[Rfam]
RNA sequence: CCAGACGGCUGGACGAUCGCUGUGCUGAUGGUGAGGACCAUCAGAAUGGAGGAAAGUCCGGGCUCCACAGGAAAACGGUGCCGGUUAACUGCCGGCGGGGGCGACCCCAGGGAUAGUGCCACAGAAAACAGACCACCCGCCGGGCUGUCUUUUUCGAAAGAUAUCUGCGGGUAAGGGCGAAACGGUGCGGUAAGAGCGCACCGCGGCGCCGGUAACGGCGCCGGUCACGGUAAACCCCACCGGGAGCAAGACCGAAUAGGAACGGCAGGAUGUUUCGACAUCCGGGGGUUUUCUGCCUCGUCGUUCGGGUUGGUCGCGUGAGGCAUGCAGCAAUGUAUGUCCCAGAGGAAUGAUCGUCCCGCCUUCGGGCGGACAGAACCCGGCUUACAGGCCGUCUGGCAUU
Numbered sequence: 001c002c003a004g005a006c007g008g009c010u011g012g013a014c015g016a017u018c019g020c021u022g023u024g025c026u027g028a029u030g031g032u033g034a035g036g037a038c039c040a041u042c043a044g045a046a047u048g049g050a051g052g053a054a055a056g057u058c059c060g061g062g063c064u065c066c067a068c069a070g071g072a073a074a075a076c077g078g079u080g081c082c083g084g085u086u087a088a089c090u091g092c093c094g095g096c097g098g099g100g101g102c103g104a105c106c107c108c109a110g111g112g113a114u115a116g117u118g119c120c121a122c123a124g125a126a127a128a129c130a131g132a133c134c135a136c137c138c139g140c141c142g143g144g145c146u147g148u149c150u151u152u153u154u155c156g157a158a159a160g161a162u163a164u165c166u167g168c169g170g171g172u173a174a175g176g177g178c179g180a181a182a183c184g185g186u187g188c189g190g191u192a193a194g195a196g197c198g199c200a201c202c203g204c205g206g207c208g209c210c211g212g213u214a215a216c217g218g219c220g221c222c223g224g225u226c227a228c229g230g231u232a233a234a235c236c237c238c239a240c241c242g243g244g245a246g247c248a249a250g251a252c253c254g255a256a257u258a259g260g261a262a263c264g265g266c267a268g269g270a271u272g273u274u275u276c277g278a279c280a281u282c283c284g285g286g287g288g289u290u291u292u293c294u295g296c297c298u299c300g301u302c303g304u305u306c307g308g309g310u311u312g313g314u315c316g317c318g319u320g321a322g323g324c325a326u327g328c329a330g331c332a333a334u335g336u337a338u339g340u341c342c343c344a345g346a347g348g349a350a351u352g353a354u355c356g357u358c359c360c361g362c363c364u365u366c367g368g369g370c371g372g373a374c375a376g377a378a379c380c381c382g383g384c385u386u387a388c389a390g391g392c393c394g395u396c397u398g399g400c401a402u403u
Stems, first nucleotide, its partner, number of pairs: 001399010011388001012358007020049004025044007054386003058383005063246004071294001073292002076242005081095005096110001097108004111237002116235002118231003133176002135172006142165002184202006203226001204223008250315004260306006285299005322341008

Bacterial RNase P class A: a 403-nucleotide sequence from Gluconobacter wancherniae.